This 47-nucleotide RNA from Serratia ficaria belongs to the Rfam family "Guanidine-II riboswitch aptamer (mini-ykkC)". The family's consensus secondary structure is taken from published work. The match comes from Rfam's covariance-model search (46 bits).
RNA sequence: UGAACGGGACGACCUGUUCACGCGUCAUUACAUCGGGGACGACCCCA
Numbered sequence: 001u002g003a004a005c006g007g008g009a010c011g012a013c014c015u016g017u018u019c020a021c022g023c024g025u026c027a028u029u030a031c032a033u034c035g036g037g038g039a040c041g042a043c044c045c046c047a
Stems, first nucleotide, its partner, number of pairs: 001020008035046004
Dot-bracket structure: ((((((((....))))))))..............((((....)))).
Rfam describes the family as follows. Simpler in structure and has fewer highly conserved nucleotide positions than the ykkC-yxkD leader.